[Rfam]
RNA sequence: UCAGGUGGCCGGGCGGCCGCGGCGGCUAUGCUGGAAACGGUGCCGUCGAGGAAAGUCCGGGCUCCAUGGAGACAAGGUGCCGGAUAACGUCCGGCGGGGGUGACCCCAGGGAAAGCGCAGCAGAGAACAGACCGCCAGGCCCUCGGGCCCGGCAAGGGUGAAACGGUGCGGUAAGAGCGCACCGCCCCGACCGCAAGGAAGGGGGCUAGGCAAGCCCCACCUGGAGCAAGACCGAAUAGGGAUGAGCGCGGCUUGCCGCACAUGUGUCUCCGCAUGUCAUCCGGGUAGGUCGCACCAGGCCGGCCGCAAGGCCGUCCGCAGAUGAAUGGUCGCCACCCCGGACUCCGGUCCGGGGGACAGAACCCGGCUUACAGGCCGCCUGAUCGU
Dot-bracket structure: ((((((((((((((((((.(((((((...............)))))))....[[[.[[[[[((((.....[...((((((((((.....)))))(((((....)))).)((...((((.............(((((.((((....)))).)))..)).......((((((.......))))))(((((..((....))..)))).)...))..)))))))))))))...((((......((((((...............(((((...]..))))))))))).....))))......((.(((((....))))).))..........)))))))............................]]]]]]]].).))))))))))....
RNA: Bacterial RNase P class A